[Rfam]
RNA sequence: UACAAGUAUUUUACAAUUCAGAAACAAUUGUUUCUUGCACAAAUUGUCUAUUAAUCU
Numbered sequence: 001u002a003c004a005a006g007u008a009u010u011u012u013a014c015a016a017u018u019c020a021g022a023a024a025c026a027a028u029u030g031u032u033u034c035u036u037g038c039a040c041a042a043a044u045u046g047u048c049u050a051u052u053a054a055u056c057u
Stems, first nucleotide, its partner, number of pairs: 018037001020035006
Dot-bracket structure: .................(.((((((....)))))).)....................